This 91-nucleotide sequence from Leptobrachium leishanense belongs to the Rfam family "Vault RNA". The family's consensus secondary structure is taken from published work. This family of RNAs are found as part of the enigmatic vault ribonucleoprotein complex. The complex consists of a major vault protein (MVP), two minor vault proteins (VPARP and TEP1), and several small untranslated RNA molecules. It has been suggested that the vault complex is involved in drug resistance. NCBI's taxonomy places the organism under Eukaryota, Craniata, Teleostomi, Amphibia, Leptobrachium. By type it is a non-coding RNA gene.

[Rfam]
RNA sequence: GUGUCAGCGUUAGCUCAAUGGUUACUUCUGCCUUCUGUUGUCUGAAUGAAUCUUCAAGGGUUAAAGCCCUGUGGGUACUACCUGGGCUUUU
Dot-bracket structure: ...((((.....((((.((((....((.((...............................)).))..)))))))).....))))......
Numbered sequence: 001g002u003g004u005c006a007g008c009g010u011u012a013g014c015u016c017a018a019u020g021g022u023u024a025c026u027u028c029u030g031c032c033u034u035c036u037g038u039u040g041u042c043u044g045a046a047u048g049a050a051u052c053u054u055c056a057a058g059g060g061u062u063a064a065a066g067c068c069c070u071g072u073g074g075g076u077a078c079u080a081c082c083u084g085g086g087c088u089u090u091u
Stems, first nucleotide, its partner, number of pairs: 004085004013076004018072004026066002029063002